Group II catalytic intron D1-D4-5: a 184-nucleotide RNA sequence from Psychrobacillus glaciei. On this family, see Bonen and Vogel, Trends Genet 2001: "The ins and outs of group II introns". Rfam 15.1 lists 720 matches to the family in 418 species. Rfam links the family to the GO term Group II intron splicing. From the family's description: Group II introns are found in rRNA, tRNA and mRNA of organelles in fungi, plants and protists, and also in mRNA in bacteria. Pairs were carried over by alignment from the consensus structure. NCBI's taxonomy places the organism under Bacteria, Bacillati, Bacillota, Bacillaceae, Psychrobacillus.
[Rfam]
RNA sequence: UUUAACUUUACAACGGAGGAUAGGAAUGAUGGAGCCAUGUUUCCAGAAACUAUCCCAUCAAUACUCCUGCAUGCGUCCUGAUUGACUGGUCAUGGGGUGUGAAGCACAGGUAGAUUCGGUUGAACUAGGCUAAAGCCAUUCUUAAGGAAAAGGUAUGCCGAGGGAUAGACCGCAUGGCUGAAAA
Number, nucleotide and partner (000 for none) at each position: 001u000002u000003u000004a000005a000006c000007u000008u000009u000010a000011c000012a000013a000014c000015g000016g000017a000018g055019g054020a053021u052022a051023g050024g000025a000026a000027u000028g000029a000030u000031g043032g042033a041034g040035c000036c000037a000038u000039g000040u034041u033042u032043c031044c000045a000046g000047a000048a000049a000050c023051u022052a021053u020054c019055c018056c176057a175058u174059c000060a000061a000062u000063a000064c000065u000066c110067c109068u108069g107070c101071a100072u099073g098074c097075g000076u095077c094078c000079u092080g091081a090082u089083u088084g000085a000086c000087u000088g083089g082090u081091c080092a079093u000094g077095g076096g000097g074098u073099g072100u071101g070102a000103a000104g000105c000106a000107c069108a068109g067110g066111u000112a000113g000114a000115u000116u000117c172118g171119g170120u169121u168122g000123a000124a000125c162126u161127a000128g159129g158130c157131u000132a000133a000134a142135g141136c000137c000138a000139u000140u000141c135142u134143u000144a000145a000146g000147g156148a000149a154150a000151a000152g000153g000154u149155a000156u147157g130158c129159c128160g000161a126162g125163g000164g000165a000166u000167a000168g121169a120170c119171c118172g117173c000174a058175u057176g056177g000178c000179u000180g000181a000182a000183a000184a000